[Rfam]
RNA sequence: CCGCGGGGACGACCUCGCCGCAAGUCCAGGGAGCCAGGCGGGGACGACCCCG
Numbered sequence: 001c002c003g004c005g006g007g008g009a010c011g012a013c014c015u016c017g018c019c020g021c022a023a024g025u026c027c028a029g030g031g032a033g034c035c036a037g038g039c040g041g042g043g044a045c046g047a048c049c050c051c052g
Stems, first nucleotide, its partner, number of pairs: 001020001003018006039052005
Overview:
Rfam assigns this 52-nucleotide RNA from Duganella sp. Root198D2 to the family "Guanidine-II riboswitch aptamer (mini-ykkC)". Lineage of the source: Bacteria > Pseudomonadati > Pseudomonadota > Oxalobacteraceae > Duganella. Gene Ontology term of the family: regulation of gene expression.